Small nucleolar RNA R11/Z151: an 81-nucleotide sequence from Papaver somniferum.
The organism belongs to Papaver, within Eukaryota.
The base pairs follow the family's consensus structure, which was predicted with PFOLD.
It is annotated as a C/D-box small nucleolar RNA.

RNA sequence: AGGCUACUAACGAUAAAUUUUAUAUCCUAGCGGAUUUCAGUGAGAUUUUAUCAGUGAUCUGAAUGUUGCACAGUGAAGCCU
Numbered sequence: 001a002g003g004c005u006a007c008u009a010a011c012g013a014u015a016a017a018u019u020u021u022a023u024a025u026c027c028u029a030g031c032g033g034a035u036u037u038c039a040g041u042g043a044g045a046u047u048u049u050a051u052c053a054g055u056g057a058u059c060u061g062a063a064u065g066u067u068g069c070a071c072a073g074u075g076a077a078g079c080c081u
Stems, first nucleotide, its partner, number of pairs: 001081005
The literature on the family includes a 2001 paper in J Mol Biol by Barneche et al., "Identification of 66 box C/D snoRNAs in Arabidopsis thaliana: extensive gene duplications generated multiple isoforms predicting new ribosomal RNA 2'-O-methylation sites".